[Rfam]
The family of this 141-nucleotide RNA sequence from Gossypium mustelinum is "MIR7502 microRNA precursor family". Pairs were carried over by alignment from the consensus structure, which was predicted with RNAalifold. It scores 83 bits against the family's covariance model. Gene Ontology terms of the family: miRNA-mediated post-transcriptional gene silencing and RISC complex.

RNA sequence: UGUUAAAAAUUCAUCCAUUUCUAUUGUUAAAAACUAGUGUGAUUGAUAGAAUAACUAGACAGUAACACAUGGUGCCACUUUUACCUUAUGAUGAUGUACAUGAACCAGUUUUUAAUAGUAGUCUGAUUGAAAUUUUUAAUA
Dot-bracket structure: .((((((((((((...(...(((((.((((((.............................................................................)))))).)))))..)...))).))))))))).